A. fumigatus sRNA Afu_309: a 342-nucleotide sequence from Aspergillus rambellii. Pairs were carried over by alignment from the consensus structure, which was predicted with WAR.

[Rfam]
RNA sequence: AUCAACAGAACACAACGGAUCUGUGUCCAGCGAUCCUGAUCAUGGAGGCACUUUCUCUCACGAGAAAAGCUGUUUCUGUGUUUCGGUUGAUUACUGGACAGUUCGACGACUUAAGGAGCCACCACUUUUUUUCCAGGUUUGGUGGUUUAUUUUCCGGUCGACAGAUCUUAGAUUAAAUGUCGGCGCUAGGUAUCACUCUGGUCUUGAGCUCCCUUUUGUCUUCGGAUGAUCGGUGAGCUCGGCUGGAUGGCCUGGCUGUUGACGGCGUCAUAUUCCUGUUCUCUUUACCGAUUUGGCCGUCGGCUGAUGAGGUUAGGGAUAAACCAUGACUGGCCAACAUCU
Numbered sequence: 001a002u003c004a005a006c007a008g009a010a011c012a013c014a015a016c017g018g019a020u021c022u023g024u025g026u027c028c029a030g031c032g033a034u035c036c037u038g039a040u041c042a043u044g045g046a047g048g049c050a051c052u053u054u055c056u057c058u059c060a061c062g063a064g065a066a067a068a069g070c071u072g073u074u075u076c077u078g079u080g081u082u083u084c085g086g087u088u089g090a091u092u093a094c095u096g097g098a099c100a101g102u103u104c105g106a107c108g109a110c111u112u113a114a115g116g117a118g119c120c121a122c123c124a125c126u127u128u129u130u131u132u133c134c135a136g137g138u139u140u141g142g143u144g145g146u147u148u149a150u151u152u153u154c155c156g157g158u159c160g161a162c163a164g165a166u167c168u169u170a171g172a173u174u175a176a177a178u179g180u181c182g183g184c185g186c187u188a189g190g191u192a193u194c195a196c197u198c199u200g201g202u203c204u205u206g207a208g209c210u211c212c213c214u215u216u217u218g219u220c221u222u223c224g225g226a227u228g229a230u231c232g233g234u235g236a237g238c239u240c241g242g243c244u245g246g247a248u249g250g251c252c253u254g255g256c257u258g259u260u261g262a263c264g265g266c267g268u269c270a271u272a273u274u275c276c277u278g279u280u281c282u283c284u285u286u287a288c289c290g291a292u293u294u295g296g297c298c299g300u301c302g303g304c305u306g307a308u309g310a311g312g313u314u315a316g317g318g319a320u321a322a323a324c325c326a327u328g329a330c331u332g333g334c335c336a337a338c339a340u341c342u
Base pairs, nucleotide, nucleotide: 017168018167019166020165021164022163023162024161025099026098027097028096029095030094032092033091034090035089036086037085038084039083041080042079044076045075046074047073051069052068054065055064056063057062107160108159109158110157111156114148115147116146118143119142120141179259180258185256186255187254188253189252190251200244201243202242203241206240207239208238209237210236211235212233213232264335265334266333267330268329269328270327271326280319281318282317283316284315287313288312289311295305296304297303298302
Dot-bracket structure: ................((((((((((((((.((((((((.((.((((...((.((((....))))..))...))))..))..))))..)))).)))))).......(((((..(((.(((....................)))..))).......)))))))))))))..........((....((((((.........((((..((((((((..................)).))))))))))......)))))).))....((((((((........(((((..(((.....((((...)))).....))).)))))......)))))..))).......
A reference for the family is Jochl et al. (2008), "Small ncRNA transcriptome analysis from Aspergillus fumigatus suggests a novel mechanism for regulation of protein synthesis", Nucleic Acids Res.